[Rfam]
RNA: Small nucleolar RNA SNORD95
Organism: Nannospalax galili
RNA sequence: AGGGUGGUGAUGACUCCAACAUGCCAUCUGAGUUGCAAUGCUGAGAUCCAGAUGCUGCUUCUGAGCUG
Numbered sequence: 001a002g003g004g005u006g007g008u009g010a011u012g013a014c015u016c017c018a019a020c021a022u023g024c025c026a027u028c029u030g031a032g033u034u035g036c037a038a039u040g041c042u043g044a045g046a047u048c049c050a051g052a053u054g055c056u057g058c059u060u061c062u063g064a065g066c067u068g
Stems, first nucleotide, its partner, number of pairs: 005068004